[Rfam]
RNA sequence: ACCCAGGCUCAGGUCUGCUGACUCUUAGUCCAGUGCUCGUAAUGGCUGCUGGGCCCUGAACUAGGGGUCUGGGGGCCCGAGUCUGACUAUC
Numbered sequence: 001a002c003c004c005a006g007g008c009u010c011a012g013g014u015c016u017g018c019u020g021a022c023u024c025u026u027a028g029u030c031c032a033g034u035g036c037u038c039g040u041a042a043u044g045g046c047u048g049c050u051g052g053g054c055c056c057u058g059a060a061c062u063a064g065g066g067g068u069c070u071g072g073g074g075g076c077c078c079g080a081g082u083c084u085g086a087c088u089a090u091c
Base pairs, nucleotide, nucleotide: 008081009080010079012077013076015074016073018071020069021068022067023066024065025064026063028061029060031058032057033056035054036053037052038051
RNA: mir-345 microRNA precursor family
Organism: Galemys pyrenaicus